[Rfam]
Shown here is a 76-nucleotide RNA from Phascolarctos cinereus, a member of the family "Small nucleolar RNA SNORD66".

RNA sequence: CUCCGAUGAUGACCUCUCGUUAGUGCCAUGUGUCUGGGCCACUGAGACCCUGUGAUGGAGCUGAGGUUCUGAGGAG
Numbered sequence: 001c002u003c004c005g006a007u008g009a010u011g012a013c014c015u016c017u018c019g020u021u022a023g024u025g026c027c028a029u030g031u032g033u034c035u036g037g038g039c040c041a042c043u044g045a046g047a048c049c050c051u052g053u054g055a056u057g058g059a060g061c062u063g064a065g066g067u068u069c070u071g072a073g074g075a076g
Base pairs, nucleotide, nucleotide: 001076002075003074004073
snoRNA HBII-142 is part of the C/D family of snoRNAs. It is annotated as a C/D-box small nucleolar RNA. The organism belongs to Phascolarctos, within Eukaryota. The literature on the family includes a 2001 paper in EMBO J by Huttenhofer et al., "RNomics: an experimental approach that identifies 201 candidates for novel, small, non-messenger RNAs in mouse". The base pairs follow the family's consensus structure, which was predicted with RNAalifold.